A member of the RNA family "Vault RNA" from Gadus morhua, 100 nucleotides long. A reference for the family is Stadler et al. (2009), "Evolution of Vault RNAs", Mol Biol Evol. Lineage of the source: Eukaryota > Craniata > Actinopterygii > Zeiogadaria > Gadus. From the family's description: This family of RNAs are found as part of the enigmatic vault ribonucleoprotein complex. The complex consists of a major vault protein (MVP), two minor vault proteins (VPARP and TEP1), and several small untranslated RNA molecules. It has been suggested that the vault complex is involved in drug resistance. Pairs were carried over by alignment from the consensus structure, which is taken from published work.
RNA sequence: GCGCUGGUGUAGCUCAGUGGUUACUUCCUACAACAAAUCCGAUUGGGUUUCCUGUAUCAUCCCACGUGGGAUCGAACCACGGGCUCUCUCCAGUGUUUCU
Number, nucleotide and partner (000 for none) at each position: 001g000002c095003g094004c093005u092006g091007g090008u000009g000010u000011a000012g084013c083014u082015c081016a000017g080018u079019g078020g077021u000022u000023a000024c000025u076026u075027c074028c000029u000030a000031c000032a000033a000034c000035a000036a000037a000038u000039c000040c000041g000042a000043u000044u000045g000046g000047g000048u000049u000050u000051c000052c000053u000054g000055u000056a000057u000058c000059a000060u000061c000062c000063c000064a000065c000066g000067u000068g000069g000070g000071a000072u000073c000074g027075a026076a025077c020078c019079a018080c017081g015082g014083g013084c012085u000086c000087u000088c000089u000090c007091c006092a005093g004094u003095g002096u000097u000098u000099c000100u000